[Rfam]
RNA sequence: CCCGCCCGCAAGGCCGACGCAUAACGCGCCGCCGGUGCAAGCCCGGCCCCGCUCCACAAGGGCGGGGGCGCUCAUGGGCCGCAA
Numbered sequence: 001c002c003c004g005c006c007c008g009c010a011a012g013g014c015c016g017a018c019g020c021a022u023a024a025c026g027c028g029c030c031g032c033c034g035g036u037g038c039a040a041g042c043c044c045g046g047c048c049c050c051g052c053u054c055c056a057c058a059a060g061g062g063c064g065g066g067g068g069c070g071c072u073c074a075u076g077g078g079c080c081g082c083a084a
Stems, first nucleotide, its partner, number of pairs: 004079004013069003018028003031047004048066006
Overview: The record is an 84-nucleotide RNA, which matches "Twister_sister_ribozyme" in Rfam. A reference for the family is Liu et al. (2017), "The structure of a nucleolytic ribozyme that employs a catalytic metal ion", Nat Chem Biol. Rfam's curators put it in the seed alignment.